[Rfam]
RNA sequence: AAGCACUUGAUACUAACCAAGCCAUCUCUGCCUUGGUUCUCAUCUUGAGUUCAGAGGUAUAACUGAUGAUCGGCUGGGUCUGAAAAGUGCAACAUCAAAACAAGCCAUGAAGUGUUAAAGCUCAGUGUGUGGAGAAACACACAGGGUUAUAACUCAGAGGCACAGAG
Dot-bracket structure: ..((((((.......(((.((((((((.(((((.((.(.(......).).)).).)))).)......))).)))).))).....)))))).............(((..................((((.(....).)))).(.((((....)))).).)))......
Annotation: The record is a 167-nucleotide RNA sequence from Salvator merianae, which matches "Small Cajal body specific RNA 1" in Rfam. On this family, see Darzacq et al., EMBO J 2002: "Cajal body-specific small nuclear RNAs: a novel class of 2'-O-methylation and pseudouridylation guide RNAs". Rfam 15.1 lists 715 matches to the family in 617 species. Taxonomically the source falls in Salvator (Eukaryota, Gnathostomata, Teleostomi, Laterata). scaRNAs are a specific class of small nuclear RNAs which localise to the Cajal bodies and guide the modification of RNA polymerase II transcribed spliceosomal RNAs U1, U2, U4, U5 and U12. ACA35 belong to the H/ACA box class of guide RNAs as it has the predicted hairpin-hinge-hairpin-tail structure, conserved H/ACA-box motifs and is found associated with GAR1. It is predicted to guide pseudouridylation of the U2 spliceosomal snRNA at residue U89. The family's RNA type in Rfam is small Cajal body RNA.